[Rfam]
RNA: R2 RNA element
Organism: Drosophila persimilis
RNA sequence: ACUUAGAGAGAGAAGACGGAGAGAAGACGCUUGCUACCUAGGCAUAAUGUGAAAUUAGGUAUAAACAUCGUGGUUGUAAAACUUGAGGUGGGUUUUUAGUACGUAUGCGUGAUUACUUCGUAAUCAUGAAUCGUGCAUGCUAGUGGGGUUUGGCCUCCACUAGUAUCUCUGAAGAUUUUCCUUCCUCAGCGAUC
Numbered sequence: 001a002c003u004u005a006g007a008g009a010g011a012g013a014a015g016a017c018g019g020a021g022a023g024a025a026g027a028c029g030c031u032u033g034c035u036a037c038c039u040a041g042g043c044a045u046a047a048u049g050u051g052a053a054a055u056u057a058g059g060u061a062u063a064a065a066c067a068u069c070g071u072g073g074u075u076g077u078a079a080a081a082c083u084u085g086a087g088g089u090g091g092g093u094u095u096u097u098a099g100u101a102c103g104u105a106u107g108c109g110u111g112a113u114u115a116c117u118u119c120g121u122a123a124u125c126a127u128g129a130a131u132c133g134u135g136c137a138u139g140c141u142a143g144u145g146g147g148g149u150u151u152g153g154c155c156u157c158c159a160c161u162a163g164u165a166u167c168u169c170u171g172a173a174g175a176u177u178u179u180c181c182u183u184c185c186u187c188a189g190c191g192a193u194c
Base pairs, nucleotide, nucleotide: 035061036060037059038058039057040056067193068192069191070190071189084188085187086186087185088184090181091180092179099136100135101134102133103132108128109127110126111125112124113123114122115121116120138165139164140163141162142161143160